nhaA-I RNA: a 59-nucleotide RNA from Methylomirabilis oxygeniifera. It is annotated as a riboswitch. The organism belongs to Methylomirabilis (SeqCode), within Bacteria. Rfam describes the family as follows. Acidobacteria, Alphaproteobacteria, Betaproteobacteria and Gammaproteobacteria, Verrucomicrobia, cand. division NC10.
RNA sequence: GGGUCCGGAGACGGCAAUCAUGCGUUUCCGGAGGAGAGAGGGUGGUCGGGCCGCCAUCC
Numbered sequence: 001g002g003g004u005c006c007g008g009a010g011a012c013g014g015c016a017a018u019c020a021u022g023c024g025u026u027u028c029c030g031g032a033g034g035a036g037a038g039a040g041g042g043u044g045g046u047c048g049g050g051c052c053g054c055c056a057u058c059c
Base pairs, nucleotide, nucleotide: 005031006030007029008028009027010026011025012024040059041058042057043056044055045054046053